[Rfam]
RNA sequence: CCGUUAUCACGAAAGGCCGAGGGAUUAGACCCGCUGAAGCCUUAGCAACCCUUUGCCAAAAGAAGGUGCUACAUUCUACCAAUAAAAAUUUGGACAGAUAACUC
Numbered sequence: 001c002c003g004u005u006a007u008c009a010c011g012a013a014a015g016g017c018c019g020a021g022g023g024a025u026u027a028g029a030c031c032c033g034c035u036g037a038a039g040c041c042u043u044a045g046c047a048a049c050c051c052u053u054u055g056c057c058a059a060a061a062g063a064a065g066g067u068g069c070u071a072c073a074u075u076c077u078a079c080c081a082a083u084a085a086a087a088a089u090u091u092g093g094a095c096a097g098a099u100a101a102c103u104c
Stems, first nucleotide, its partner, number of pairs: 003102006013043005021032003026078004044070004049066002051062004074096001079093004
RNA: SAM riboswitch aptamer (S box leader)